The family of this 91-nucleotide sequence from Xenopus laevis is "Small nucleolar RNA SNORD35". The organism belongs to Xenopus, within Eukaryota. The match comes from Rfam's covariance-model search (66 bits).
Nucleotides: 091
Stems, first nucleotide, its partner, number of pairs: 001086004
Number, partner (000 for none) and nucleotide at each position: 001086u002085g003084c004083a005000a006000a007000u008000g009000a010000u011000g012000u013000u014000u015000a016000c017000u018000c019000a020000c021000g022000a023000u024000g025000g026000u027000c028000u029000u030000c031000c032000a033000a034000g035000c036000c037000u038000c039000a040000a041000u042000g043000g044000u045000g046000a047000a048000g049000a050000g051000g052000u053000u054000u055000u056000g057000a058000c059000g060000a061000a062000a063000g064000u065000g066000c067000c068000a069000g070000a071000u072000g073000g074000c075000u076000u077000u078000a079000c080000u081000g082000a083004u084003g085002c086001a087000g088000u089000g090000u091000a
Description
Rfam 15.1 lists 1,842 matches to the family in 634 species. A reference for the family is Nicoloso et al. (1996), "Intron-encoded, antisense small nucleolar RNAs: the characterization of nine novel species points to their direct role as guides for the 2'-O-ribose methylation of rRNAs", J Mol Biol. The family's RNA type in Rfam is C/D-box small nucleolar RNA. U35 is a C/D box snoRNA located in intron 6 of ribosomal protein L13A and intron 3 of ribosomal protein S11 in humans and at homologous positions in mouse and chicken ribosomal protein genes. U35 guides the methylation of 2'-O-ribose sites in 28S rRNA. Gene Ontology terms of the family: RNA processing and nucleolus.